[Rfam]
RNA sequence: GCCAGAGGCGGAGAAUAUACAAGUUUUUCUGCCCGAUAAUGAACAGGUCAUAUUUUGUCAAGAUAUCGUUUCAGUCGCUAUUUCUAUUGGCGAUUUGAUUGUUGCUUGACGAUAU
Number, nucleotide and partner (000 for none) at each position: 001g000002c000003c000004a000005g000006a000007g033008g032009c031010g030011g029012a000013g026014a025015a000016u000017a000018u000019a000020c000021a000022a000023g000024u000025u014026u013027u000028u000029c011030u010031g009032c008033c007034c000035g000036a000037u000038a000039a000040u000041g000042a000043a000044c000045a000046g000047g000048u000049c000050a000051u000052a000053u000054u000055u000056u111057g110058u000059c108060a107061a106062g105063a000064u000065a099066u098067c097068g096069u000070u000071u000072c000073a000074g094075u093076c092077g091078c090079u089080a088081u000082u086083u000084c000085u000086a082087u000088u080089g079090g078091c077092g076093a075094u074095u000096u068097g067098a066099u065100u000101g000102u000103u000104g000105c062106u061107u060108g059109a000110c057111g056112a000113u000114a000115u000
Shown here is a 115-nucleotide RNA sequence from Zostera marina, a member of the family "Small nucleolar RNA snoR111".
NCBI's taxonomy places the organism under Eukaryota, Mesangiospermae, Alismatales, Zosteraceae, Zostera.
The match comes from Rfam's covariance-model search (58 bits).
The family has 6 seed sequences and 533 matches in Rfam 15.1.
Its family is annotated with nucleolus and RNA processing in the Gene Ontology.
Pairs were carried over by alignment from the consensus structure, which was predicted with WAR.